Archaeal large subunit ribosomal RNA: a 104-nucleotide part of an RNA from Nitrosotalea sinensis. Pairs were carried over by alignment from the consensus structure, which is taken from published work. A search with the family's covariance model found it, with a score of 2700 bits. Taxonomically the source falls in Nitrosotalea (Archaea, Thermoproteati, Nitrososphaeria, Nitrosotaleaceae).
Nucleotides: 104
Base pairs, nucleotide, nucleotide: 001086002085003084004083005082006081007080008079009078010077015075016074023064024063025062026061027060028059037050038049039048040047041046089104090103091102092101
Number, partner (000 for none) and nucleotide at each position: 001086u002085g003084c004083a005082u006081g007080g008079c009078a010077u011000g012000a013000a014000a015075g016074g017000g018000g019000u020000u021000u022000u023064u024063g025062u026061c027060a028059g029000a030000u031000u032000g033000g034000a035000g036000g037050u038049u039048c040047u041046a042000g043000c044000a045000a046041u047040a048039g049038g050037g051000c052000u053000g054000a055000a056000g057000g058000u059028c060027u061026g062025g063024c064023g065000u066000u067000c068000a069000u070000a071000g072000c073000u074016c075015c076000a077010g078009u079008g080007u081006c082005a083004u084003g085002c086001g087000u088000u089104c090103c091102g092101u093000c094000u095000a096000g097000a098000a099000a100000c101092a102091c103090g104089g